[Rfam]
RNA sequence: ACAAAGGCUCUUUUCAGAGCCACCGACACUUUCUGGGAAUGAGCU
Number, nucleotide and partner (000 for none) at each position: 001a000002c000003a000004a000005a000006g021007g020008c019009u018010c017011u016012u000013u000014u000015c000016a011017g010018a009019g008020c007021c006022a000023c000024c000025g000026a000027c000028a000029c000030u000031u000032u000033c000034u000035g000036g000037g000038a000039a000040u000041g000042a000043g000044c000045u000